t44 RNA: an 88-nucleotide sequence from Sinobacterium caligoides. It is annotated as a small RNA. For this family Rfam cites "Transcriptome analysis of Escherichia coli using high-density oligonucleotide probe arrays" (Tjaden et al., Nucleic Acids Res, 2002). From the family's description: This family consists of a number of bacterial RNA genes of between 135 and 170 bases in length. Pairs were carried over by alignment from the consensus structure, which was predicted with LocARNA.
RNA sequence: CAUUGAACGGUAAAACGUCACACACGUGUCGGCACACUCUUUCUGGGUGCCCGUAAGGGUUGAAAGAUGGGGCACGUGGAGGAAUAAC
Numbered sequence: 001c002a003u004u005g006a007a008c009g010g011u012a013a014a015a016c017g018u019c020a021c022a023c024a025c026g027u028g029u030c031g032g033c034a035c036a037c038u039c040u041u042u043c044u045g046g047g048u049g050c051c052c053g054u055a056a057g058g059g060u061u062g063a064a065a066g067a068u069g070g071g072g073c074a075c076g077u078g079g080a081g082g083a084a085u086a087a088c
Stems, first nucleotide, its partner, number of pairs: 023078008035069002038067006049060004